Shown here is a 275-nucleotide sequence from Shouchella lonarensis, a member of the family "BsrG". Rfam links the family to the GO terms autolysis and toxin activity. Rfam describes the family as follows. bsrE, bsrG and bsrH pair through intermolecular interactions with antisense sRNAs. They form type I toxin/antitoxin system that includes an mRNA encoding for a short, toxic peptide (bsrE, bsrG and bsrH) and an antitoxin that is comprised of an antisense RNA. bsrG encodes a 39-amino-acid toxin, and the 180 nucleotide antisense sRNA called SR4 acts as the antitoxin (they overlap by 123 nucleotides). SR4 interaction with the 3'UTR of bsrG RNA promotes bsrG degradation and inhibits its translation. BsrG interferes with cell envelope biosynthesis, causes membrane invaginations and delocalisation of the cell wall synthesis and initiates autolysis. bsrE RNA encodes 30 amino-acid toxin peptide.
[Rfam]
RNA sequence: CAGUAACGAAAGGGUCUUUAAGGGUGGGCGGUACUCCCUAUCGAAAGGGGGUGUCGCAAGAUGACGAUAUUUGAGGCGUUUAUGCUUAUGGUAGCAUUUGGCGGUUUGAUUGUAUCGAUCAUCAGCUUGUCGCAAAAGAAAGAUAGCGAUAACAACAAGUAACCACCCUUAAGCAUGCCACGCGGUAGGGUGGUUAUCAGUACCUUAUCAAUCGGCCGUCCCUCUUAAAGGGAACCCUGUUACUGAAAGCCGUGAGUGUUUCUCAAGCACUCGCG
Numbered sequence: 001c002a003g004u005a006a007c008g009a010a011a012g013g014g015u016c017u018u019u020a021a022g023g024g025u026g027g028g029c030g031g032u033a034c035u036c037c038c039u040a041u042c043g044a045a046a047g048g049g050g051g052u053g054u055c056g057c058a059a060g061a062u063g064a065c066g067a068u069a070u071u072u073g074a075g076g077c078g079u080u081u082a083u084g085c086u087u088a089u090g091g092u093a094g095c096a097u098u099u100g101g102c103g104g105u106u107u108g109a110u111u112g113u114a115u116c117g118a119u120c121a122u123c124a125g126c127u128u129g130u131c132g133c134a135a136a137a138g139a140a141a142g143a144u145a146g147c148g149a150u151a152a153c154a155a156c157a158a159g160u161a162a163c164c165a166c167c168c169u170u171a172a173g174c175a176u177g178c179c180a181c182g183c184g185g186u187a188g189g190g191u192g193g194u195u196a197u198c199a200g201u202a203c204c205u206u207a208u209c210a211a212u213c214g215g216c217c218g219u220c221c222c223u224c225u226u227a228a229a230g231g232g233a234a235c236c237c238u239g240u241u242a243c244u245g246a247a248a249g250c251c252g253u254g255a256g257u258g259u260u261u262c263u264c265a266a267g268c269a270c271u272c273g274c275g
Base pairs, nucleotide, nucleotide: 001245002244003243004242005241007239008238013217014216015215016214017173018172019171020170021169022168023167024166026163033052035050036049037048038047039046063131064130065129066128067127077090078089100123101122103120104119105118184203219233220232221231222230251275252274253273254272255271256270257269258268259267260266